Rfam assigns this 89-nucleotide RNA sequence from Tribolium castaneum to the family "mir-3817 microRNA precursor family". The family's consensus secondary structure was predicted with RNAalifold. Taxonomically the source falls in Tribolium (Eukaryota, Panarthropoda, Arthropoda, Endopterygota). Rfam's curators put it in the seed alignment.
[Rfam]
RNA sequence: UAACUGGGGCCGGUUUCGAGGCGUGGUGGGCGGUAAUAUUAGUAAAAAUAAUACUAUCCCCGACUACGCCUCGGAAUUGGUUUUGGUGU
Number, nucleotide and partner (000 for none) at each position: 001u000002a000003a087004c086005u085006g084007g083008g082009g081010c080011c079012g078013g077014u076015u075016u074017c000018g072019a071020g070021g069022c068023g067024u066025g065026g064027u000028g000029g061030g060031c000032g058033g057034u056035a055036a000037u053038a052039u051040u000041a000042g000043u000044a000045a000046a000047a000048a000049u000050a000051a039052u038053a037054c000055u035056a034057u033058c032059c000060c030061c029062g000063a000064c026065u025066a024067c023068g022069c021070c020071u019072c018073g000074g016075a015076a014077u013078u012079g011080g010081u009082u008083u007084u006085g005086g004087u003088g000089u000